[Rfam]
RNA sequence: CGGGCAAGACACGGGAGCCCGGGGUACGGCGGGCUGAGAGUGCGGGUCGAGCCCCCGCUGACCGUUUGACCUGAUCCGGGUAAUGCCGGCGAAGGAAGGAUGCCGUCAUCGUGA
Dot-bracket structure: ......(..(((((.((((((........))))).......((((.........)))))..))))....(((...((((......))))...)))..)..).............

The family of this 114-nucleotide RNA sequence from Gordonia insulae is "TPP riboswitch aptamer (THI element)". NCBI's taxonomy places the organism under Bacteria, Actinomycetota, Actinomycetes, Mycobacteriales, Gordonia. The family's consensus secondary structure is taken from published work.